Overview
This 168-nucleotide RNA sequence from Lacisediminihabitans profunda belongs to the Rfam family "FMN riboswitch aptamer (RFN element)". About the family: The RFN element is a highly conserved domain that is found frequently in the 5'-untranslated regions of prokaryotic mRNAs that encode for flavin mononucleotide (FMN) biosynthesis and transport proteins. The match comes from Rfam's covariance-model search (78 bits).

RNA sequence: AACGUGCUCCGGGGUCGGUGAAAGUCCGAACCGGCGGUGAUAGUCCGCGACCCGCGGUUUCCGGUCUGUGUCAAAACAGGCGGGAGGCAGCGGUUGAUUCGGUGAAAUUCCGAGACCGACGGUAAUGAGAUCGCGAGAUCUCUCAGUCCGGAUGGAAGGAAGCGCGCG
Number, nucleotide and partner (000 for none) at each position: 001a000002a000003c166004g165005u164006g163007c162008u161009c159010c158011g000012g000013g000014g000015u000016c028017g027018g026019u000020g000021a000022a000023a000024g000025u000026c018027c017028g016029a000030a000031c000032c118033g117034g048035c047036g046037g045038u000039g000040a000041u000042a000043g116044u115045c037046c036047g035048c034049g000050a000051c000052c093053c092054g091055c090056g000057g000058u000059u000060u000061c000062c000063g000064g000065u000066c000067u000068g000069u000070g000071u000072c000073a000074a000075a000076a000077c000078a000079g000080g000081c000082g000083g000084g000085a000086g000087g000088c000089a000090g055091c054092g053093g052094u000095u000096g000097a000098u114099u113100c112101g111102g110103u000104g000105a000106a000107a000108u000109u000110c102111c101112g100113a099114g098115a044116c043117c033118g032119a000120c150121g149122g148123u000124a000125a000126u000127g000128a000129g000130a000131u000132c000133g000134c000135g000136a000137g000138a000139u000140c000141u000142c000143u000144c000145a000146g000147u000148c122149c121150g120151g000152a000153u000154g000155g000156a000157a000158g010159g009160a000161a008162g007163c006164g005165c004166g003167c000168g000